[Rfam]
Shown here is a 97-nucleotide RNA sequence from Propionimicrobium lymphophilum, a member of the family "Bacterial small signal recognition particle RNA". A search with the family's covariance model found it, with a score of 63 bits. The family is grouped with related families in Rfam's "SRP clan". Pairs were carried over by alignment from the consensus structure, which is taken from published work. On this family, see Rosenblad et al., Nucleic Acids Res 2003: "SRPDB: Signal Recognition Particle Database".
RNA sequence: CAAGGUUCUCCGCGCGGCGGAAUCUCGCCCAACUCCCCCAGGGUCGGAAGGCAGCAAGGGUAAGUGAGCUCUACCGGGUGCGCGGGGAACCCCUUUU
Numbered sequence: 001c002a003a004g005g006u007u008c009u010c011c012g013c014g015c016g017g018c019g020g021a022a023u024c025u026c027g028c029c030c031a032a033c034u035c036c037c038c039c040a041g042g043g044u045c046g047g048a049a050g051g052c053a054g055c056a057a058g059g060g061u062a063a064g065u066g067a068g069c070u071c072u073a074c075c076g077g078g079u080g081c082g083c084g085g086g087g088a089a090c091c092c093c094u095u096u097u
Base pairs, nucleotide, nucleotide: 004091005090006089007088008087009086010085011084012083013082014081015078018076019075020074022072024068025067026066027065028064035060036059037058043052044051045050